RNA: Manganese Mn2+ riboswitch aptamer (yybP-ykoY)
Organism: Rhodanobacter lindaniclasticus
RNA sequence: ACCCCUUGGGGAGUAGCCUGCCUCGUUCCGCGAGGCGUCUUCGUCAACAUGCUCGGCGUCCAUCCGCCGUGGCGAAGACACCGAUCCUGGUUGGCGAGACCAACGGCUGACGGCGCCACAGCGGUGGGGCGCGCCGUCGUGCCGUUGCGCCUGGCCCGACCGAAUGGCU
Numbered sequence: 001a002c003c004c005c006u007u008g009g010g011g012a013g014u015a016g017c018c019u020g021c022c023u024c025g026u027u028c029c030g031c032g033a034g035g036c037g038u039c040u041u042c043g044u045c046a047a048c049a050u051g052c053u054c055g056g057c058g059u060c061c062a063u064c065c066g067c068c069g070u071g072g073c074g075a076a077g078a079c080a081c082c083g084a085u086c087c088u089g090g091u092u093g094g095c096g097a098g099a100c101c102a103a104c105g106g107c108u109g110a111c112g113g114c115g116c117c118a119c120a121g122c123g124g125u126g127g128g129g130c131g132c133g134c135c136g137u138c139g140u141g142c143c144g145u146u147g148c149g150c151c152u153g154g155c156c157c158g159a160c161c162g163a164a165u166g167g168c169u
Stems, first nucleotide, its partner, number of pairs: 020036003037079010054069005081167003085163002